A member of the RNA family "eL15-Euryarchaeota ribosomal protein leader" from Methanobacterium paludis, 43 nucleotides long.

RNA sequence: UGAGAUGUAAGUCUCAUGGAUGUGGCGAAAGCUGAACAAAAGA
Numbered sequence: 001u002g003a004g005a006u007g008u009a010a011g012u013c014u015c016a017u018g019g020a021u022g023u024g025g026c027g028a029a030a031g032c033u034g035a036a037c038a039a040a041a042g043a
Stems, first nucleotide, its partner, number of pairs: 001016005017039001019037001024033003